[Rfam]
RNA sequence: AUCUUAUCUAGAGAGGUGGAGGGACUGGCCCUUCGAAGCCUCAGCAACAGGUUACUUUAACACUGUGCUAAUUCCAGAAAGCAAUGCUUGAAGAUAAGAA
Numbered sequence: 001a002u003c004u005u006a007u008c009u010a011g012a013g014a015g016g017u018g019g020a021g022g023g024a025c026u027g028g029c030c031c032u033u034c035g036a037a038g039c040c041u042c043a044g045c046a047a048c049a050g051g052u053u054a055c056u057u058u059a060a061c062a063c064u065g066u067g068c069u070a071a072u073u074c075c076a077g078a079a080a081g082c083a084a085u086g087c088u089u090g091a092a093g094a095u096a097a098g099a100a
Stems, first nucleotide, its partner, number of pairs: 002099007013042005021031003025077004043069004048065002051061004073092001078089001080088003

About this RNA:
A member of the RNA family "SAM riboswitch aptamer (S box leader)" from Niallia taxi, 100 nucleotides long.